Notes:
PyrR binding site: a 111-nucleotide RNA from Kyrpidia spormannii.
RNA sequence: ACUCCCUUUAAAAACGGUCCCGCGAGGCCGGAAAGGGAGGGAUUCGGCACCUGUAGGGGAGGAUUCCCCGGGGAGCCGAGAACCUCUGCGCCGGCGCAGAGGUUUUUUUAU
Numbered sequence: 001a002c003u004c005c006c007u008u009u010a011a012a013a014a015c016g017g018u019c020c021c022g023c024g025a026g027g028c029c030g031g032a033a034a035g036g037g038a039g040g041g042a043u044u045c046g047g048c049a050c051c052u053g054u055a056g057g058g059g060a061g062g063a064u065u066c067c068c069c070g071g072g073g074a075g076c077c078g079a080g081a082a083c084c085u086c087u088g089c090g091c092c093g094g095c096g097c098a099g100a101g102g103u104u105u106u107u108u109u110a111u
Stems, first nucleotide, its partner, number of pairs: 003038007015030005045078004050073003056067003079106012